[Rfam]
RNA sequence: GGUGAUUGGGGUGCACGGUGUUGGUCUGUGCUAUGCUGUGUUGUUGGGCUGUGUUUUGCAGUCUUGGCAACAGAGCUCACUCCCCACCUGCAGCCAUAGAGCAACUGGGGAUCAUAGUACUGGUCUUUGAUGUCUUCACAGAUAUCUAAUCAUUGACCAGCCUCCAAACUCUCCAACAAAC
Numbered sequence: 001g002g003u004g005a006u007u008g009g010g011g012u013g014c015a016c017g018g019u020g021u022u023g024g025u026c027u028g029u030g031c032u033a034u035g036c037u038g039u040g041u042u043g044u045u046g047g048g049c050u051g052u053g054u055u056u057u058g059c060a061g062u063c064u065u066g067g068c069a070a071c072a073g074a075g076c077u078c079a080c081u082c083c084c085c086a087c088c089u090g091c092a093g094c095c096a097u098a099g100a101g102c103a104a105c106u107g108g109g110g111a112u113c114a115u116a117g118u119a120c121u122g123g124u125c126u127u128u129g130a131u132g133u134c135u136u137c138a139c140a141g142a143u144a145u146c147u148a149a150u151c152a153u154u155g156a157c158c159a160g161c162c163u164c165c166a167a168a169c170u171c172u173c174c175a176a177c178a179a180a181c
Stems, first nucleotide, its partner, number of pairs: 013091003030080001035077001036075002039072003043068002046064002050060003107174005120160006128152002131144005
RNA: Small nucleolar RNA SNORA23
Organism: Cyprinodon variegatus